Record summary: Bacterial RNase P class A: a 390-nucleotide RNA from Mucilaginibacter myungsuensis. Rfam classes the family as a ribozyme. The source organism's lineage runs through Bacteria, Sphingobacteriia, Sphingobacteriales, Sphingobacteriaceae and Mucilaginibacter.

[Rfam]
RNA sequence: CCUGCAAAACGUUCUAUCGCUGUUCGCCGCAAGGCGGGCGGAGGAAAGUCCGGGCAACACAGAGCAUCCUGCUUCCUAACGGGAAGGCACCCGCAGCGGGUGACAGCAAGUGCCACAGAGAAUAUACCGCCUGUUAGUAAUAAUGGGUAAGGGUGAAAACGUGAGGUAAGAGCUCACGGCUUUCGCGGGUGAUCGCGAUCGCGGUAAACCUCAGGAGUUGAAAGGCCAAAUAGGUGUCGGACGCGGGGCUGCUCGUCCCCUUCACAACGUCAAGUUGGGAUGUCGGCAUGGGUAGGCCGUUAAAGCUGUGCGGCAACGUACAGAAAAGAUCAAUGAUAGAAGCUCCCGUCAAACGGAGAACAGAACCCGGCUUAUAGCUUUGCAGCUGAU
Numbered sequence: 001c002c003u004g005c006a007a008a009a010c011g012u013u014c015u016a017u018c019g020c021u022g023u024u025c026g027c028c029g030c031a032a033g034g035c036g037g038g039c040g041g042a043g044g045a046a047a048g049u050c051c052g053g054g055c056a057a058c059a060c061a062g063a064g065c066a067u068c069c070u071g072c073u074u075c076c077u078a079a080c081g082g083g084a085a086g087g088c089a090c091c092c093g094c095a096g097c098g099g100g101u102g103a104c105a106g107c108a109a110g111u112g113c114c115a116c117a118g119a120g121a122a123u124a125u126a127c128c129g130c131c132u133g134u135u136a137g138u139a140a141u142a143a144u145g146g147g148u149a150a151g152g153g154u155g156a157a158a159a160c161g162u163g164a165g166g167u168a169a170g171a172g173c174u175c176a177c178g179g180c181u182u183u184c185g186c187g188g189g190u191g192a193u194c195g196c197g198a199u200c201g202c203g204g205u206a207a208a209c210c211u212c213a214g215g216a217g218u219u220g221a222a223a224g225g226c227c228a229a230a231u232a233g234g235u236g237u238c239g240g241a242c243g244c245g246g247g248g249c250u251g252c253u254c255g256u257c258c259c260c261u262u263c264a265c266a267a268c269g270u271c272a273a274g275u276u277g278g279g280a281u282g283u284c285g286g287c288a289u290g291g292g293u294a295g296g297c298c299g300u301u302a303a304a305g306c307u308g309u310g311c312g313g314c315a316a317c318g319u320a321c322a323g324a325a326a327a328g329a330u331c332a333a334u335g336a337u338a339g340a341a342g343c344u345c346c347c348g349u350c351a352a353a354c355g356g357a358g359a360a361c362a363g364a365a366c367c368c369g370g371c372u373u374a375u376a377g378c379u380u381u382g383c384a385g386c387u388g389a390u
Stems, first nucleotide, its partner, number of pairs: 002385007010377001011375001012341007020041009046373003050370005055220004063276003067216005072086005087104001088102004105211002110209002112205003127152002129148008160178006183198006224298004234289006268282004306323007
The base pairs follow the family's consensus structure, which is taken from published work.